[Rfam]
The record is a 143-nucleotide RNA from Elaeis guineensis, which matches "MIR168 microRNA precursor family" in Rfam. Gene Ontology terms of the family: RISC complex and miRNA-mediated post-transcriptional gene silencing.
RNA sequence: CUCGCUGCUCUCUCGAGCUCGCUUGGUGCAGGUCGGGAACCGCCUUGGGACCGUCCGAUCUCCGGGAGACCCGAUCAGGUACGUUCGUUCGAUGGGGCCGGUUCCCGACUUGCAUCAACUGAAUUCGAGAACCCUCAGCGAAA
Numbered sequence: 001c002u003c004g005c006u007g008c009u010c011u012c013u014c015g016a017g018c019u020c021g022c023u024u025g026g027u028g029c030a031g032g033u034c035g036g037g038a039a040c041c042g043c044c045u046u047g048g049g050a051c052c053g054u055c056c057g058a059u060c061u062c063c064g065g066g067a068g069a070c071c072c073g074a075u076c077a078g079g080u081a082c083g084u085u086c087g088u089u090c091g092a093u094g095g096g097g098c099c100g101g102u103u104c105c106c107g108a109c110u111u112g113c114a115u116c117a118a119c120u121g122a123a124u125u126c127g128a129g130a131a132c133c134c135u136c137a138g139c140g141a142a143a
Stems, first nucleotide, its partner, number of pairs: 013128002017124001019122002023118010034107005040101002